[Rfam]
RNA sequence: CGAUCAAUGAUGACUUAUGCAUAUACAUUCCUUGGAAACCUGAACAAAAUGAGAGUAAAAUCCUUAGUGUCUCACACAUCAACCUGAGGCCC
Numbered sequence: 001c002g003a004u005c006a007a008u009g010a011u012g013a014c015u016u017a018u019g020c021a022u023a024u025a026c027a028u029u030c031c032u033u034g035g036a037a038a039c040c041u042g043a044a045c046a047a048a049a050u051g052a053g054a055g056u057a058a059a060a061u062c063c064u065u066a067g068u069g070u071c072u073c074a075c076a077c078a079u080c081a082a083c084c085u086g087a088g089g090c091c092c
Stems, first nucleotide, its partner, number of pairs: 002091001004089002026055001028053003032047003